[Rfam]
RNA: mir-172 microRNA precursor family
RNA sequence: GCGGAUGCGGCAUCAUCAAGAUUCACAAGCUUUAAGGCUUGAGUGAGAGGGGUGGCAUACGGUCACCUCCUUUAAGGCUUGAGUGAGAGGGGUGGCAUACGGUCACCUCCUUUAGUCCAAAGGGUCCUUUUUUAUGGGAAUCUUGAUGAUGCUGCAUCGGC
Numbered sequence: 001g002c003g004g005a006u007g008c009g010g011c012a013u014c015a016u017c018a019a020g021a022u023u024c025a026c027a028a029g030c031u032u033u034a035a036g037g038c039u040u041g042a043g044u045g046a047g048a049g050g051g052g053u054g055g056c057a058u059a060c061g062g063u064c065a066c067c068u069c070c071u072u073u074a075a076g077g078c079u080u081g082a083g084u085g086a087g088a089g090g091g092g093u094g095g096c097a098u099a100c101g102g103u104c105a106c107c108u109c110c111u112u113u114a115g116u117c118c119a120a121a122g123g124g125u126c127c128u129u130u131u132u133u134a135u136g137g138g139a140a141u142c143u144u145g146a147u148g149a150u151g152c153u154g155c156a157u158c159g160g161c
Stems, first nucleotide, its partner, number of pairs: 004158021026136002